Pseudomonas sRNA P26: a 63-nucleotide sequence from Enterobacterales bacterium CwR94. This small RNA (sRNA) was computationally identified in the genome of the opportunistic pathogen Pseudomonas aeruginosa and its expression verified by northern blot analysis. P26 is conserved across many Gammaproteobacteria species and appears to be consistently located between the DNA directed RNA polymerase (beta subunit) and 50S ribosomal protein L7/L12 genes. For this family Rfam cites "Identification of 17 Pseudomonas aeruginosa sRNAs and prediction of sRNA-encoding genes in 10 diverse pathogens using the bioinformatic tool sRNAPredict2" (Livny et al., Nucleic Acids Res, 2006). A search with the family's covariance model found it, with a score of 52 bits. The organism belongs to Enterobacterales, within Bacteria.
RNA sequence: ACCUUUCAGGUUGCAGCCUAGAGUAACAGGCUGAUGGCUGGUGACCGAAAUGGUCACCAGCCU
Numbered sequence: 001a002c003c004u005u006u007c008a009g010g011u012u013g014c015a016g017c018c019u020a021g022a023g024u025a026a027c028a029g030g031c032u033g034a035u036g037g038c039u040g041g042u043g044a045c046c047g048a049a050a051u052g053g054u055c056a057c058c059a060g061c062c063u
Stems, first nucleotide, its partner, number of pairs: 014033005036062012
Dot-bracket structure: .............(((((..........)))))..((((((((((((...)))))))))))).